Nucleotides: 177
Base pairs, nucleotide, nucleotide: 006172007171008170009169010168011167016082017081018080019079020078021077022076024074030067031066032065033064034063035062036061037060086116087115088114089113090112091111092110093109095107096106097105117143118142119141120140121139122138123137125136126135127134145162146161147160148159149158150157151156
Number, partner (000 for none) and nucleotide at each position: 001000u002000a003000c004000a005000g006172c007171g008170g009169a010168a011167g012000a013000g014000g015000a016082g017081c018080a019079c020078u021077g022076c023000c024074c025000a026000g027000g028000c029000a030067g031066g032065u033064a034063a035062u036061c037060a038000u039000g040000u041000g042000a043000a044000g045000c046000c047000g048000c049000a050000a051000c052000u053000u054000c055000u056000a057000u058000a059000c060037u061036g062035a063034u064033u065032a066031c067030u068000g069000a070000u071000g072000g073000g074024g075000a076022g077021c078020a079019g080018u081017g082016c083000c084000g085000a086116g087115a088114u089113g090112a091111a092110c093109u094000c095107a096106a097105u098000u099000u100000g101000c102000a103000g104000g105097a106096u107095u108000a109093a110092g111091u112090u113089u114088a115087u116086c117143g118142g119141u120140u121139a122138a123137a124000c125136g126135g127134g128000c129000u130000g131000a132000a133000u134127c135126c136125c137123u138122u139121u140120a141119a142118c143117u144000g145162u146161c147160a148159c149158c150157a151156a152000g153000u154000g155000a156151u157150u158149g159148g160147u161146g162145a163000a164000g165000a166000g167011c168010u169009u170008c171007u172006g173000a174000g175000g176000u177000c
A member of the RNA family "Lysine riboswitch aptamer" from Vibrio thalassae, 177 nucleotides long.
The family's consensus secondary structure is taken from published work.
Lineage of the source: Bacteria > Pseudomonadati > Pseudomonadota > Gammaproteobacteria > Vibrio.